[Rfam]
RNA sequence: AGCUUUUAUCAGGUAUCAGCAAUUGUCUUUAAUUAGGGGGAAGAAUGAAGAAGAAUACUAAAGAAUAGCAGACUUAAAACUUGAGACAGUUUUCAGUGCUUGAACUUACUUUUUUCAUUUUACUUCAUCCUCCAAGGAGGGUAGUCACUGGUGUGCCUACUUUACUUCUUUUAAGUGAAAGAACAGCAAACAGGCAAC
Numbered sequence: 001a002g003c004u005u006u007u008a009u010c011a012g013g014u015a016u017c018a019g020c021a022a023u024u025g026u027c028u029u030u031a032a033u034u035a036g037g038g039g040g041a042a043g044a045a046u047g048a049a050g051a052a053g054a055a056u057a058c059u060a061a062a063g064a065a066u067a068g069c070a071g072a073c074u075u076a077a078a079a080c081u082u083g084a085g086a087c088a089g090u091u092u093u094c095a096g097u098g099c100u101u102g103a104a105c106u107u108a109c110u111u112u113u114u115u116c117a118u119u120u121u122a123c124u125u126c127a128u129c130c131u132c133c134a135a136g137g138a139g140g141g142u143a144g145u146c147a148c149u150g151g152u153g154u155g156c157c158u159a160c161u162u163u164a165c166u167u168c169u170u171u172u173a174a175g176u177g178a179a180a181g182a183a184c185a186g187c188a189a190a191c192a193g194g195c196a197a198c
Stems, first nucleotide, its partner, number of pairs: 002020003007015003029139002033135002036132004040126004048119002053114003070093003073089002096107001098105001148193003154188003160181003163177005

This 198-nucleotide sequence from Cnephaeus nilssonii belongs to the Rfam family "Connexin-43 internal ribosome entry site (IRES)". Rfam's curators write: This family represents the connexin-43 internal ribosome entry site (IRES) which allows cap independent translation during conditions such as heat shock and stress. NCBI's taxonomy places the organism under Eukaryota, Euteleostomi, Mammalia, Chiroptera, Cnephaeus.